[Rfam]
Nucleotides: 076
Stems, first nucleotide, its partner, number of pairs: 010067003014063003018059002022054002026050006
Number, partner (000 for none) and nucleotide at each position: 001000u002000u003000g004000u005000u006000c007000c008000u009000u010067u011066u012065u013000c014063c015062u016061g017000a018059g019058c020000a021000a022054a023053u024000g025000a026050c027049u028048c029047u030046u031045u032000a033000a034000a035000a036000a037000u038000u039000g040000g041000u042000u043000c044000c045031a046030a047029a048028g049027a050026g051000g052000u053023a054022u055000g056000g057000g058019g059018c060000a061016u062015g063014g064000c065012a066011a067010a068000a069000u070000a071000g072000g073000g074000c075000a076000u